[Rfam]
RNA sequence: GUGUGUUAAUGAUGGUCUUUCUUUAAACUCAAGAGGGAGCAGACCUGAUGUCAACACUC
Numbered sequence: 001g002u003g004u005g006u007u008a009a010u011g012a013u014g015g016u017c018u019u020u021c022u023u024u025a026a027a028c029u030c031a032a033g034a035g036g037g038a039g040c041a042g043a044c045c046u047g048a049u050g051u052c053a054a055c056a057c058u059c
Base pairs, nucleotide, nucleotide: 001059003057004056005055014045015044016043017042018041020039022037023036028035029034
Selenocysteine insertion sequence 1: a 59-nucleotide RNA sequence from Notothenia coriiceps. The match comes from Rfam's covariance-model search (39 bits). Lineage of the source: Eukaryota > Eumetazoa > Bilateria > Actinopterygii > Notothenia. The family's RNA type in Rfam is cis-regulatory element.